Shown here is a 114-nucleotide RNA sequence from Bacillus taeanensis, a member of the family "SAM riboswitch aptamer (S box leader)". A reference for the family is Grundy and Henkin (1998), "The S box regulon: a new global transcription termination control system for methionine and cysteine biosynthesis genes in gram-positive bacteria", Mol Microbiol. A search with the family's covariance model found it, with a score of 91 bits. The source organism's lineage runs through Bacteria, Bacillati, Bacilli, Bacillaceae and Bacillus. The SAM riboswitch is found upstream of a number of genes which code for proteins involved in methionine or cysteine biosynthesis in Gram-positive bacteria. The SAM riboswitch acts at the level of transcription termination control. The predicted structure consists of a complex stem-loop region followed by a single stem loop terminator region. An alternative and mutually exclusive form involves bases in the 3' segment of helix 1 with those in the 5' region of helix 5 to form a structure termed the anti-terminator form. This entry represents the conserved core of the complex structure involving helices 1-4.
RNA sequence: CUCUUAUUAAGAGAGGUGGAGGGACUGGCCCUGUGAAGCCCGGCAACCGUCAAACAAUGUUUGAAAAGGUGCCAAUUCCUGCAAAACAGCUUUUGUUGUUUUGGGAGAUGAGAG
Numbered sequence: 001c002u003c004u005u006a007u008u009a010a011g012a013g014a015g016g017u018g019g020a021g022g023g024a025c026u027g028g029c030c031c032u033g034u035g036a037a038g039c040c041c042g043g044c045a046a047c048c049g050u051c052a053a054a055c056a057a058u059g060u061u062u063g064a065a066a067a068g069g070u071g072c073c074a075a076u077u078c079c080u081g082c083a084a085a086a087c088a089g090c091u092u093u094u095g096u097u098g099u100u101u102u103g104g105g106a107g108a109u110g111a112g113a114g
Stems, first nucleotide, its partner, number of pairs: 001114008013041001015040003021031003025081001027079002042073004047069002050064003077106001082103008